[Rfam]
RNA sequence: CCUCACUGCGCCUGCAUUGUACACACUGUGCGAAGUGUGUGAGUGUAUGCACAGCGCAUACAAUGUGGAUGCAGUGGAG
Numbered sequence: 001c002c003u004c005a006c007u008g009c010g011c012c013u014g015c016a017u018u019g020u021a022c023a024c025a026c027u028g029u030g031c032g033a034a035g036u037g038u039g040u041g042a043g044u045g046u047a048u049g050c051a052c053a054g055c056g057c058a059u060a061c062a063a064u065g066u067g068g069a070u071g072c073a074g075u076g077g078a079g
Stems, first nucleotide, its partner, number of pairs: 012068002015065007024056001026054006
RNA: mir-460 microRNA precursor family